[Rfam]
RNA: Bacterial large subunit ribosomal RNA, nucleotides 684 to 914
Organism: Stackebrandtia endophytica
RNA sequence: GAGUUAGUGGUACGUGGCAAGGUUAACCCGUGUGGGGAAGCCGUAGCGAAAGCGAGUCUGAAUAGGGCGUUUUUAGUCGCGUGCUCUAGACCCGAAGCGGAGUGAUCUACCCAUGUCCAGGGUGAAGCGGCUGUAAGAGGUCGUGGAGGCCCGAACCCACCAGCGUUGAAAAGCUGGGGGAUGAGGUGUGGGUAGGGGUGAAAGGCCAAUCAAACUCCGUGAUAGCUGGUU
Numbered sequence: 001g002a003g004u005u006a007g008u009g010g011u012a013c014g015u016g017g018c019a020a021g022g023u024u025a026a027c028c029c030g031u032g033u034g035g036g037g038a039a040g041c042c043g044u045a046g047c048g049a050a051a052g053c054g055a056g057u058c059u060g061a062a063u064a065g066g067g068c069g070u071u072u073u074u075a076g077u078c079g080c081g082u083g084c085u086c087u088a089g090a091c092c093c094g095a096a097g098c099g100g101a102g103u104g105a106u107c108u109a110c111c112c113a114u115g116u117c118c119a120g121g122g123u124g125a126a127g128c129g130g131c132u133g134u135a136a137g138a139g140g141u142c143g144u145g146g147a148g149g150c151c152c153g154a155a156c157c158c159a160c161c162a163g164c165g166u167u168g169a170a171a172a173g174c175u176g177g178g179g180g181a182u183g184a185g186g187u188g189u190g191g192g193u194a195g196g197g198g199u200g201a202a203a204g205g206c207c208a209a210u211c212a213a214a215c216u217c218c219g220u221g222a223u224a225g226c227u228g229g230u231u
Stems, first nucleotide, its partner, number of pairs: 005088003009085010021042004027036003046053002056068004091229002094226001098219006107195011118183001120152004127144006156180003160177005197207003